[Rfam]
RNA: mir-156 microRNA precursor family
Organism: Malus baccata
RNA sequence: GUGACAGAAGAGAGUGAGCACACGUGGUUCUUUUCUUGCAUUAAUCCAUGUCGGAAGCUUUGUGUGUUCAUUCUCUUUCUGUCAC
Numbered sequence: 001g002u003g004a005c006a007g008a009a010g011a012g013a014g015u016g017a018g019c020a021c022a023c024g025u026g027g028u029u030c031u032u033u034u035c036u037u038g039c040a041u042u043a044a045u046c047c048a049u050g051u052c053g054g055a056a057g058c059u060u061u062g063u064g065u066g067u068u069c070a071u072u073c074u075c076u077u078u079c080u081g082u083c084a085c
Base pairs, nucleotide, nucleotide: 001085002084003083004082005081006080007079008078009077010075011074012073013072014071015070016069017068018067019066020065021064023062024061